[Rfam]
The family of this 87-nucleotide sequence from Geoalkalibacter ferrihydriticus is "c-di-GMP-I riboswitch aptamer". The base pairs follow the family's consensus structure, which is taken from published work.
RNA sequence: UUUUCGAAAGGGUAAACCCCGGGUGACCGGGGGGCACAAAGCCUACGGCUCCUGGGUAUGCGGCUUCAGGAGGGCCGGGUUACCGAA
Numbered sequence: 001u002u003u004u005c006g007a008a009a010g011g012g013u014a015a016a017c018c019c020c021g022g023g024u025g026a027c028c029g030g031g032g033g034g035c036a037c038a039a040a041g042c043c044u045a046c047g048g049c050u051c052c053u054g055g056g057u058a059u060g061c062g063g064c065u066u067c068a069g070g071a072g073g074g075c076c077g078g079g080u081u082a083c084c085g086a087a
Base pairs, nucleotide, nucleotide: 012037013036017032018031019030020029021028022027040081041080042079043078046077047076048075049072050071051070052069053068054067055066
The organism belongs to Geoalkalibacter ferrihydriticus, within Bacteria.